[Rfam]
RNA sequence: UAGAAGAAUGUGGGUAAGGGAAGUCGGCAAACUGGAUCCGUAACUUUGGAAAAAGGGUUGGCUCAGCUUGCACAAGACAAGAAGUUGAACUGAUGCGGACACGGGGAAUCUAACUGUCUAAUUAAAACAUAGCUUUGUGAUAGUCGGAAAACGACCGUGACACAAAGUGAUUUCUGCCCAGUGCUCUGAAUGUCAAGGUGAAGAAAUUCAAUCAAGCGCGGGUAAACGGCAGGAGUAACUAUGACUCUUUUAAGGUAGCCAAAUGCCUCGUCGUGUAAUUUGCGACGCGCAUGAAUGGACUAAUGAGAUUCCCACUGUCCCUACCCACCAUCUAGCGAACCCACAGCCAGGGGAACGGGCCUGGGC
Numbered sequence: 001u002a003g004a005a006g007a008a009u010g011u012g013g014g015u016a017a018g019g020g021a022a023g024u025c026g027g028c029a030a031a032c033u034g035g036a037u038c039c040g041u042a043a044c045u046u047u048g049g050a051a052a053a054a055g056g057g058u059u060g061g062c063u064c065a066g067c068u069u070g071c072a073c074a075a076g077a078c079a080a081g082a083a084g085u086u087g088a089a090c091u092g093a094u095g096c097g098g099a100c101a102c103g104g105g106g107a108a109u110c111u112a113a114c115u116g117u118c119u120a121a122u123u124a125a126a127a128c129a130u131a132g133c134u135u136u137g138u139g140a141u142a143g144u145c146g147g148a149a150a151a152c153g154a155c156c157g158u159g160a161c162a163c164a165a166a167g168u169g170a171u172u173u174c175u176g177c178c179c180a181g182u183g184c185u186c187u188g189a190a191u192g193u194c195a196a197g198g199u200g201a202a203g204a205a206a207u208u209c210a211a212u213c214a215a216g217c218g219c220g221g222g223u224a225a226a227c228g229g230c231a232g233g234a235g236u237a238a239c240u241a242u243g244a245c246u247c248u249u250u251u252a253a254g255g256u257a258g259c260c261a262a263a264u265g266c267c268u269c270g271u272c273g274u275g276u277a278a279u280u281u282g283c284g285a286c287g288c289g290c291a292u293g294a295a296u297g298g299a300c301u302a303a304u305g306a307g308a309u310u311c312c313c314a315c316u317g318u319c320c321c322u323a324c325c326c327a328c329c330a331u332c333u334a335g336c337g338a339a340c341c342c343a344c345a346g347c348c349a350g351g352g353g354a355a356c357g358g359g360c361c362u363g364g365g366c
Stems, first nucleotide, its partner, number of pairs: 001334004010328007018320003035059005044049001060091002063088006092096001104313007111305002115129003132168008141157001143155004172299003176230003181227002183223004188219001191218003199210004231249006250254001270286006347364005